[Rfam]
A member of the RNA family "Glycine riboswitch aptamer" from Paraburkholderia acidiphila, 101 nucleotides long. For this family Rfam cites "A glycine-dependent riboswitch that uses cooperative binding to control gene expression" (Mandal et al., Science, 2004).
RNA sequence: CUGCGCGCGCCGGGAGAGCGCGCCGUUUGCGUUGAUUAGCGCAACCGGCGCCGCCGAAGGGGCAACCCACAAACUCUCAGGCAAAAGGACCGUGCGCGCCG
Numbered sequence: 001c002u003g004c005g006c007g008c009g010c011c012g013g014g015a016g017a018g019c020g021c022g023c024c025g026u027u028u029g030c031g032u033u034g035a036u037u038a039g040c041g042c043a044a045c046c047g048g049c050g051c052c053g054c055c056g057a058a059g060g061g062g063c064a065a066c067c068c069a070c071a072a073a074c075u076c077u078c079a080g081g082c083a084a085a086a087g088g089a090c091c092g093u094g095c096g097c098g099c100c101g
Base pairs, nucleotide, nucleotide: 005097006096007095008094009093011092012091013090020051021050022049023048024047025046053082054081055080056078057077060076061075062074